Shown here is a 94-nucleotide sequence from Sinanaerobacter chloroacetimidivorans, a member of the family "c-di-GMP-I riboswitch aptamer". Gene Ontology term of the family: cyclic-di-GMP binding. NCBI's taxonomy places the organism under Bacteria, Bacillota, Peptostreptococcales, Anaerovoracaceae, Sinanaerobacter. It scores 70 bits against the family's covariance model. From the family's description: GEMM was predicted in a large-scale screen for bacterial structured RNA regulatory elements.
RNA sequence: UUGUUGAAACGGCAAACCUAUCGAAAGGUAGGGACGCAAAGUCAGGAGUCUAAAACAGCCUGUCAAAGGUUGUCAGGAUAGUCCGUCUGCCACA
Numbered sequence: 001u002u003g004u005u006g007a008a009a010c011g012g013c014a015a016a017c018c019u020a021u022c023g024a025a026a027g028g029u030a031g032g033g034a035c036g037c038a039a040a041g042u043c044a045g046g047a048g049u050c051u052a053a054a055a056c057a058g059c060c061u062g063u064c065a066a067a068g069g070u071u072g073u074c075a076g077g078a079u080a081g082u083c084c085g086u087c088u089g090c091c092a093c094a
Stems, first nucleotide, its partner, number of pairs: 012037002017032006040088002043085001045084003048079003055073007